[Rfam]
RNA sequence: AAAGUGAAACGUAAAAGCACGGUUCCGGUCGGUAGUCUGGACGCACGGCCUGACAGAAUCGCGGGCGGCGGCACCGCGCGCUGCUUCAGGCGCACGCUGCCAUUGUAUGACAGUGGUCGACCACCACAUGGUCUCCGCACCAUUUCAGAUCAGGCCGUGUCAGUAACCUUCCCCCUCGGGAUGUCCGUCGUUUCGUAUUUCUUG
Numbered sequence: 001a002a003a004g005u006g007a008a009a010c011g012u013a014a015a016a017g018c019a020c021g022g023u024u025c026c027g028g029u030c031g032g033u034a035g036u037c038u039g040g041a042c043g044c045a046c047g048g049c050c051u052g053a054c055a056g057a058a059u060c061g062c063g064g065g066c067g068g069c070g071g072c073a074c075c076g077c078g079c080g081c082u083g084c085u086u087c088a089g090g091c092g093c094a095c096g097c098u099g100c101c102a103u104u105g106u107a108u109g110a111c112a113g114u115g116g117u118c119g120a121c122c123a124c125c126a127c128a129u130g131g132u133c134u135c136c137g138c139a140c141c142a143u144u145u146c147a148g149a150u151c152a153g154g155c156c157g158u159g160u161c162a163g164u165a166a167c168c169u170u171c172c173c174c175c176u177c178g179g180g181a182u183g184u185c186c187g188u189c190g191u192u193u194c195g196u197a198u199u200u201c202u203u204g
Stems, first nucleotide, its partner, number of pairs: 004196008022042002025040004043160011170181004
RNA: azaaromatic riboswitch aptamer (yjdF RNA)
Organism: Paenibacillus stellifer